Record summary
This 209-nucleotide RNA sequence from Escherichia coli belongs to the Rfam family "Gammaproteobacterial sRNA STnc100".
RNA sequence: CUGUCAAACUGAGCAUUUGUUAAAAAAAUUUCGCAUGGUGAAUCCCCCUGUGUGGAGGGGCGACUGGUGAAAAAUCCUUGCUUGUGAUUCAUUAUCGACACGGGUUCGGUGGUACCAGGCCGAACUCACCGGGAGGCACCCGGCACCAUGCAGUAUACAGAGAUUAGGCAUAUACCAAGGCCUCUCAUAGCAGGGGCCUUUUUACAUGU
Numbered sequence: 001c002u003g004u005c006a007a008a009c010u011g012a013g014c015a016u017u018u019g020u021u022a023a024a025a026a027a028a029u030u031u032c033g034c035a036u037g038g039u040g041a042a043u044c045c046c047c048c049u050g051u052g053u054g055g056a057g058g059g060g061c062g063a064c065u066g067g068u069g070a071a072a073a074a075u076c077c078u079u080g081c082u083u084g085u086g087a088u089u090c091a092u093u094a095u096c097g098a099c100a101c102g103g104g105u106u107c108g109g110u111g112g113u114a115c116c117a118g119g120c121c122g123a124a125c126u127c128a129c130c131g132g133g134a135g136g137c138a139c140c141c142g143g144c145a146c147c148a149u150g151c152a153g154u155a156u157a158c159a160g161a162g163a164u165u166a167g168g169c170a171u172a173u174a175c176c177a178a179g180g181c182c183u184c185u186c187a188u189a190g191c192a193g194g195g196g197c198c199u200u201u202u203u204a205c206a207u208g209u
Stems, first nucleotide, its partner, number of pairs: 017160003033151008045060005067092003102127004107122003129143005168209004177200009
Lineage of the source: Bacteria > Pseudomonadati > Pseudomonadota > Enterobacteriaceae > Escherichia.